Rfam assigns this 174-nucleotide sequence from Actinacidiphila oryziradicis to the family "c-di-AMP riboswitch aptamer (ydaO/yuaA leader)". This family represents a conserved RNA structure found upstream of the ydaO and yuaA genes in Bacillus subtilis and related genes in other bacteria. Taxonomically the source falls in Actinacidiphila (Bacteria, Bacillati, Actinomycetes, Streptomycetaceae). Rfam links the family to the GO terms cyclic-di-AMP binding and regulation of gene expression. A search with the family's covariance model found it, with a score of 63 bits.
RNA sequence: GAAACCAGAGCGCUUACGGCAGGAGCGGGGGACCCAGGUCAGUUGCCGUUACCGGAAGUUCGGUACGGCUAGGGGUGAAGUCGCAUGUGGAGCACCGGAAUCGGUGCGCCCUGCGGCCGGGCAUCUCCAGCCCGAACCCGACAGCUUACCUCGCAGGCGUCGGAGAGGAAUUCG
Numbered sequence: 001g002a003a004a005c006c007a008g009a010g011c012g013c014u015u016a017c018g019g020c021a022g023g024a025g026c027g028g029g030g031g032a033c034c035c036a037g038g039u040c041a042g043u044u045g046c047c048g049u050u051a052c053c054g055g056a057a058g059u060u061c062g063g064u065a066c067g068g069c070u071a072g073g074g075g076u077g078a079a080g081u082c083g084c085a086u087g088u089g090g091a092g093c094a095c096c097g098g099a100a101u102c103g104g105u106g107c108g109c110c111c112u113g114c115g116g117c118c119g120g121g122c123a124u125c126u127c128c129a130g131c132c133c134g135a136a137c138c139c140g141a142c143a144g145c146u147u148a149c150c151u152c153g154c155a156g157g158c159g160u161c162g163g164a165g166a167g168g169a170a171u172u173c174g
Base pairs, nucleotide, nucleotide: 005023006022025154026153027152028151029150030149035072073139074138075137081116082115083114084113119133120132121131122130